[Rfam]
RNA sequence: AUAGCGAGAUGAGGCGCAUCCAUCAUCAGUAACUUAUCAAGCAAUUGAUCCCCGGGGGUCAUGGUGAGUGAAAGGGUAAGAUGCCGAAAUGAUCUGUUUUUUCGGGGAACAGGCUGUUGGGUCAGAAGGUUAAGAGCUACUGACUUGUCAUUAUUUUAAAGAUAAUGGAGUGCAUCACUUGUA
Numbered sequence: 001a002u003a004g005c006g007a008g009a010u011g012a013g014g015c016g017c018a019u020c021c022a023u024c025a026u027c028a029g030u031a032a033c034u035u036a037u038c039a040a041g042c043a044a045u046u047g048a049u050c051c052c053c054g055g056g057g058g059u060c061a062u063g064g065u066g067a068g069u070g071a072a073a074g075g076g077u078a079a080g081a082u083g084c085c086g087a088a089a090u091g092a093u094c095u096g097u098u099u100u101u102u103c104g105g106g107g108a109a110c111a112g113g114c115u116g117u118u119g120g121g122u123c124a125g126a127a128g129g130u131u132a133a134g135a136g137c138u139a140c141u142g143a144c145u146u147g148u149c150a151u152u153a154u155u156u157u158a159a160a161g162a163u164a165a166u167g168g169a170g171u172g173c174a175u176c177a178c179u180u181g182u183a
Stems, first nucleotide, its partner, number of pairs: 006178001008176004016084005024076001032069008088118004093113007119146007127138002148168007
Shown here is a 183-nucleotide RNA from Lacicoccus alkaliphilus, a member of the family "Lysine riboswitch aptamer". Riboswitches are metabolite binding domains within certain messenger RNAs that serve as precision sensors for their corresponding targets. Allosteric rearrangement of mRNA structure is mediated by ligand binding, and this results in modulation of gene expression. This family includes riboswitches that sense lysine in a number of genes involved in lysine metabolism, including lysC. Taxonomically the source falls in Lacicoccus alkaliphilus (Bacteria, Bacillota, Caryophanales, Salinicoccaceae). The family's consensus secondary structure is taken from published work. Gene Ontology term of the family: lysine biosynthetic process. The match comes from Rfam's covariance-model search (97 bits).